[Rfam]
RNA sequence: UACCGAGGUUUUCCUCGGCAGUUAACUGCCGCCGGUUCCCUAAAAACUUCGGCAUUUAACUGUCGAGGAGCAU
Numbered sequence: 001u002a003c004c005g006a007g008g009u010u011u012u013c014c015u016c017g018g019c020a021g022u023u024a025a026c027u028g029c030c031g032c033c034g035g036u037u038c039c040c041u042a043a044a045a046a047c048u049u050c051g052g053c054a055u056u057u058a059a060c061u062g063u064c065g066a067g068g069a070g071c072a073u
Stems, first nucleotide, its partner, number of pairs: 012069002015066011027054005
RNA: MIR2629 microRNA precursor family
Organism: Medicago truncatula